[Rfam]
RNA sequence: AUUAAAGAUGGUGAUGGAGUUCACCUCUAAUCGCAGUAUACCGCUGAUAACUCCUACAAAAUA
Dot-bracket structure: .........[[[[..((((((]]]].......((.(....).))....)))))).........
RNA: Fluoride riboswitch aptamer (crcB RNA motif)
Organism: Candidatus Moduliflexus flocculans